[Rfam]
RNA: MIR535 microRNA precursor family
Organism: Phoenix dactylifera
RNA sequence: GAACUGGGGUGACAACGAGAAAGAGCACGCUAGUACACAGCCAUGGCACCUUGCAUGACUGCCGACCGGCGUGCUCUCUCUCGUUGUCAGCCAACC
Number, nucleotide and partner (000 for none) at each position: 001g000002a000003a000004c000005u000006g000007g000008g000009g000010u089011g088012a087013c086014a085015a000016c083017g082018a000019g000020a079021a000022a000023g076024a000025g074026c073027a072028c071029g070030c069031u068032a000033g066034u065035a000036c000037a000038c000039a000040g000041c000042c000043a000044u000045g000046g000047c000048a000049c000050c000051u000052u000053g000054c000055a000056u000057g000058a000059c000060u000061g000062c000063c000064g000065a034066c033067c000068g031069g030070c029071g028072u027073g026074c025075u000076c023077u000078c000079u020080c000081u000082c017083g016084u000085u014086g013087u012088c011089a010090g000091c000092c000093a000094a000095c000096c000